[Rfam]
RNA sequence: UAAUGAUAACGGCAAACUAUUCGAAAGGGUAGGACGCAAAGCCUAGGGUCUACGGUUUUCAAGAAAACUAUGAUCGCCUGGUUGCCAAA
Dot-bracket structure: ...........((...((((((....))))))...))..((((.((((((....((((......))))...)))..)))))))......